[Rfam]
RNA sequence: GUCAACUACCCCUCCCUAAAAUCUCCGAUUUUAGAGUAAGGGGCUUGCAAAAGCCCUGGUUGACCAGACCCCCGAUUCGGAGCUUAGGAAAAUCGGGAAACGAUAGGAACGAAUUUCAUAGUUACCCUGAAAUGCCGCCUCAGUUUCAGGCUCUAAGGAUGCCGGUUAAACAGUCCUGGGAGGUAGGGACAGUGCUUGCAUCAUACAAACCGUUCCAUAUCAGAUUGAGAGGAAGCCGGA
Numbered sequence: 001g002u003c004a005a006c007u008a009c010c011c012c013u014c015c016c017u018a019a020a021a022u023c024u025c026c027g028a029u030u031u032u033a034g035a036g037u038a039a040g041g042g043g044c045u046u047g048c049a050a051a052a053g054c055c056c057u058g059g060u061u062g063a064c065c066a067g068a069c070c071c072c073c074g075a076u077u078c079g080g081a082g083c084u085u086a087g088g089a090a091a092a093u094c095g096g097g098a099a100a101c102g103a104u105a106g107g108a109a110c111g112a113a114u115u116u117c118a119u120a121g122u123u124a125c126c127c128u129g130a131a132a133u134g135c136c137g138c139c140u141c142a143g144u145u146u147c148a149g150g151c152u153c154u155a156a157g158g159a160u161g162c163c164g165g166u167u168a169a170a171c172a173g174u175c176c177u178g179g180g181a182g183g184u185a186g187g188g189a190c191a192g193u194g195c196u197u198g199c200a201u202c203a204u205a206c207a208a209a210c211c212g213u214u215c216c217a218u219a220u221c222a223g224a225u226u227g228a229g230a231g232g233a234a235g236c237c238g239g240a
Base pairs, nucleotide, nucleotide: 001064002063003062004061005060006059007058008057010043011042012040013039016036017035044053045052046051067237069235071097072096073095074094075093076092077091102221103220104219105218106216107215108214109213110212111211122156123155126150127149128148129147130146131145132144133143158202159201160200161199162198164196165195166194170193171192173190174189175188176187177186179184